Notes: The family of this 157-nucleotide sequence from Conger conger is "U1 spliceosomal RNA". The base pairs follow the family's consensus structure, which is taken from published work. A search with the family's covariance model found it, with a score of 130 bits. By type it is a spliceosomal small nuclear RNA. The organism belongs to Conger, within Eukaryota.
[Rfam]
RNA sequence: AUACUUACCUGGCAGGGAGAUACCGUGAUCACGAAGGCGGUUCACCCAGGGCGAGGCUCGGCCAUUGCACUCCGGCUGUGUUGACCCCUGCGAAUUCCUCAAAAUGGGAAUCUCGACUGCAUAAUUUCUGCUAGUGGGGACUGCGUUCAUCUCCCUG
Dot-bracket structure: ...........((((((.((.(((((..........))))))).)).((((.(.(((.(((((..........))))).)))..))))).((((((.((......)).))).))).))))...............(((((.((....))..))))).